Histone 3' UTR stem-loop: a 45-nucleotide RNA sequence from Acanthaster planci. The family's RNA type in Rfam is cis-regulatory element.
RNA sequence: CCACCGGUUCUUCUAAGAACCACACCUCUUCCAAAAAGAGAUUUA
Number, nucleotide and partner (000 for none) at each position: 001c000002c000003a000004c000005c000006g021007g020008u019009u018010c017011u016012u000013c000014u000015a000016a011017g010018a009019a008020c007021c006022a000023c000024a000025c000026c000027u000028c000029u000030u000031c000032c000033a000034a000035a000036a000037a000038g000039a000040g000041a000042u000043u000044u000045a000